[Rfam]
RNA: GA-cis RNA
RNA sequence: AAGAGGAAACGCGCUUAUGAACGAAGUUCAUAACUCUCAUGCGCGUGACGACCUGCCGCUGAGCGGAGGCGAGGGGGCGAUACCCGAG
Numbered sequence: 001a002a003g004a005g006g007a008a009a010c011g012c013g014c015u016u017a018u019g020a021a022c023g024a025a026g027u028u029c030a031u032a033a034c035u036c037u038c039a040u041g042c043g044c045g046u047g048a049c050g051a052c053c054u055g056c057c058g059c060u061g062a063g064c065g066g067a068g069g070c071g072a073g074g075g076g077g078c079g080a081u082a083c084c085c086g087a088g
Stems, first nucleotide, its partner, number of pairs: 008046001010045004016032006055078003059074002063070002
Dot-bracket structure: .......(.((((..((((((.....)))))).........)))))........(((.((..((....))..)).)))..........